The family of this 192-nucleotide RNA from Salvia splendens is "MIR159 microRNA precursor family". Its family is annotated with RISC complex and miRNA-mediated post-transcriptional gene silencing in the Gene Ontology.
Nucleotides: 192
Stems, first nucleotide, its partner, number of pairs: 013178008023168001025166005036155001058133002061130003068124004076116001
Number, partner (000 for none) and nucleotide at each position: 001000a002000g003000c004000a005000u006000a007000c008000a009000a010000a011000g012000g013178g014177a015176g016175c017174u018173u019172c020171c021000u022000u023168c024000u025166g026165u027164c028163c029162a030000g031000c032000c033000a034000u035000g036155g037000a038000g039000a040000g041000u042000u043000g044000u045000a046000g047000g048000a049000u050000u051000u052000g053000a054000u055000u056000u057000g058133c059132u060000g061130c062129c063128g064000a065000u066000u067000u068124c069123a070122u071121u072000c073000a074000c075000c076116c077000a078000a079000a080000u081000a082000u083000a084000g085000a086000g087000u088000a089000a090000a091000u092000a093000a094000u095000u096000c097000a098000u099000a100000a101000u102000a103000u104000u105000a106000c107000u108000u109000u110000g111000c112000a113000a114000u115000u116076g117000a118000g119000u120000g121071a122070a123069u124068g125000a126000u127000a128063c129062g130061g131000g132059a133058g134000c135000u136000g137000a138000c139000u140000u141000g142000a143000a144000u145000c146000u147000u148000a149000a150000c151000c152000u153000u154000u155036c156000u157000g158000u159000u160000c161000u162029u163028g164027g165026a166025c167000u168023g169000a170000a171020g172019g173018g174017a175016g176015c177014u178013c179000c180000c181000u182000u183000u184000a185000a186000u187000u188000a189000a190000u191000u192000u

The source organism's lineage runs through Eukaryota, Streptophytina, Salviinae, Salvia subgen. Calosphace and core Calosphace.